RNA sequence: CAUGUUAAUUGUACUUCAUCAGGUGCUCUGGUGAUUUUGAUACCCGGUGCCUGUUGGAGCGCAAUUCAUAUG
Numbered sequence: 001c002a003u004g005u006u007a008a009u010u011g012u013a014c015u016u017c018a019u020c021a022g023g024u025g026c027u028c029u030g031g032u033g034a035u036u037u038u039g040a041u042a043c044c045c046g047g048u049g050c051c052u053g054u055u056g057g058a059g060c061g062c063a064a065u066u067c068a069u070a071u072g
Stems, first nucleotide, its partner, number of pairs: 001072004010063003014059005020053002023050005030044002
RNA: mir-305 microRNA precursor family